[Rfam]
Nucleotides: 046
Base pairs, nucleotide, nucleotide: 003046004045005044007041008040009039010038015035016034017033018032019031020030021029022027
Number, partner (000 for none) and nucleotide at each position: 001000c002000c003046g004045g005044c006000u007041c008040c009039g010038g011000u012000u013000c014000a015035c016034g017033u018032c019031g020030u021029c022027c023000a024000c025000g026000c027022g028000a029021g030020a031019c032018g033017a034016c035015g036000a037000c038010c039009c040008g041007g042000c043000g044005g045004c046003c
About this RNA: The record is a 46-nucleotide sequence from Frankia casuarinae, which matches "L31-Actinobacteria ribosomal protein leader" in Rfam. Its Rfam clan is "Ribosomal Protein L31 Leader clan". The family's consensus secondary structure is taken from published work. NCBI's taxonomy places the organism under Bacteria, Bacillati, Actinomycetota, Frankiaceae, Frankia. The sequence is in the family's curated seed alignment.